[Rfam]
RNA sequence: GGUUGCAACUUUGAGGCCAUAGCUGAGAUGUUCAUGGCGUGGCCCUGUCAGAUUCCAAUGCAUCUGCUAAUUCUGCU
Numbered sequence: 001g002g003u004u005g006c007a008a009c010u011u012u013g014a015g016g017c018c019a020u021a022g023c024u025g026a027g028a029u030g031u032u033c034a035u036g037g038c039g040u041g042g043c044c045c046u047g048u049c050a051g052a053u054u055c056c057a058a059u060g061c062a063u064c065u066g067c068u069a070a071u072u073c074u075g076c077u
Stems, first nucleotide, its partner, number of pairs: 013045001015044004021077003025073003028040003049066005055060001
Description:
The record is a 77-nucleotide RNA sequence from Crocodylus porosus, which matches "Mammalian CPEB3 ribozyme" in Rfam. The literature on the family includes a 2006 paper in Science by Salehi-Ashtiani et al., "A genomewide search for ribozymes reveals an HDV-like sequence in the human CPEB3 gene". It scores 49 bits against the family's covariance model. The family's consensus secondary structure is taken from published work. The organism belongs to Crocodylus, within Eukaryota. Gene Ontology term of the family: RNA nuclease activity.